[Rfam]
RNA sequence: AGUAUCUUUAAUACAGUCCAGAGAGGCUGAAAAGGCGAGUGAAUACGGGAUGCUUCUAUUUAACUAUGCCUAUUUAUGCCCUUUUGUCCUCUCUGACAAAAGGGUUUUUAUU
Numbered sequence: 001a002g003u004a005u006c007u008u009u010a011a012u013a014c015a016g017u018c019c020a021g022a023g024a025g026g027c028u029g030a031a032a033a034g035g036c037g038a039g040u041g042a043a044u045a046c047g048g049g050a051u052g053c054u055u056c057u058a059u060u061u062a063a064c065u066a067u068g069c070c071u072a073u074u075u076a077u078g079c080c081c082u083u084u085u086g087u088c089c090u091c092u093c094u095g096a097c098a099a100a101a102g103g104g105u106u107u108u109u110a111u112u
Base pairs, nucleotide, nucleotide: 003037005035006034007033008032009031014029015028016027017026018025042075043074047070048069050067051066052065054063055062076107078105079104080103081102082101083100084099085098086097087096088095

The family of this 112-nucleotide sequence from Bacillus sp. FJAT-27231 is "PyrR binding site".
Rfam classes the family as a cis-regulatory element.
The family has 41 seed sequences and 1,498 matches in Rfam 15.1.
The organism belongs to Bacillus, within Bacteria.
Rfam describes the family as follows. This family represents the PyrR binding site and terminator structure.